[Rfam]
RNA sequence: UUUGUACAUUCUGAGUUGGGUCGACGCCCAUGCCAACCUGCCGGACCGGGCAAGGUGGAUUGCGAAAUCGCAAAUGUGGCUCCAUCGUGGAGCAACCAAACGGAACGCG
Numbered sequence: 001u002u003u004g005u006a007c008a009u010u011c012u013g014a015g016u017u018g019g020g021u022c023g024a025c026g027c028c029c030a031u032g033c034c035a036a037c038c039u040g041c042c043g044g045a046c047c048g049g050g051c052a053a054g055g056u057g058g059a060u061u062g063c064g065a066a067a068u069c070g071c072a073a074a075u076g077u078g079g080c081u082c083c084a085u086c087g088u089g090g091a092g093c094a095a096c097c098a099a100a101c102g103g104a105a106c107g108c109g
Base pairs, nucleotide, nucleotide: 006077007076008075009074010073015031017030018029019028020027021026033058034057037055038054039053040051041050042049046103047102048101079093080092081091082090083089084088
This 109-nucleotide sequence from Noviherbaspirillum galbum belongs to the Rfam family "SAM-I/IV (S-adenosyl methionine) riboswitch aptamer". A search with the family's covariance model found it, with a score of 57 bits. The family is grouped with related families in Rfam's "SAM clan". The family has 417 seed sequences and 567 matches in Rfam 15.1. The organism belongs to Noviherbaspirillum, within Bacteria.